[Rfam]
RNA sequence: AGGCCCCCUGCGGGAGAGACCGGCCGAAGACGCCGGCGCCGAAGGCGCAACCGCCCCGGAAACGCUCAGGCGACAGGACCGCAGGAUGAUG
Numbered sequence: 001a002g003g004c005c006c007c008c009u010g011c012g013g014g015a016g017a018g019a020c021c022g023g024c025c026g027a028a029g030a031c032g033c034c035g036g037c038g039c040c041g042a043a044g045g046c047g048c049a050a051c052c053g054c055c056c057c058g059g060a061a062a063c064g065c066u067c068a069g070g071c072g073a074c075a076g077g078a079c080c081g082c083a084g085g086a087u088g089a090u091g
Base pairs, nucleotide, nucleotide: 007085008084009083010082011081012080013079020036021035022034023033038071039070040069041067042066045065046064047063051059052058

This 91-nucleotide RNA sequence from Alkalicaulis satelles belongs to the Rfam family "Glycine riboswitch aptamer". NCBI's taxonomy places the organism under Bacteria, Alphaproteobacteria, Maricaulales, Maricaulaceae, Alkalicaulis.